A member of the RNA family "DABA-DC-AT RNA" from Vibrio halioticoli, 143 nucleotides long.
The organism belongs to Vibrio halioticoli, within Bacteria.
Rfam classes the family as a cis-regulatory element.

RNA sequence: GCAAUCUCAGAGUGCUCUGAGGGACACGCGUAAUAACCAUCCUGAGCUGAUUGUGAUAUUACGUAGGGUAGGUAUCAAACGAACGUCGUUUGAUAGAUGGGAAUAACCAUGUCAGUGAUGACAUAGCGAUAGGCAACCCAACA
Numbered sequence: 001g002c003a004a005u006c007u008c009a010g011a012g013u014g015c016u017c018u019g020a021g022g023g024a025c026a027c028g029c030g031u032a033a034u035a036a037c038c039a040u041c042c043u044g045a046g047c048u049g050a051u052u053g054u055g056a057u058a059u060u061a062c063g064u065a066g067g068g069u070a071g072g073u074a075u076c077a078a079a080c081g082a083a084c085g086u087c088g089u090u091u092g093a094u095a096g097a098u099g100g101g102a103a104u105a106a107c108c109a110u111g112u113c114a115g116u117g118a119u120g121a122c123a124u125a126g127c128g129a130u131a132g133g134c135a136a137c138c139c140a141a142c143a
Base pairs, nucleotide, nucleotide: 006021007020008019009018010017011016028064029063030062031061032060033059034058035057038053039052073095074094075093076092077091078090079089080088081087082086110123111122112121113120114119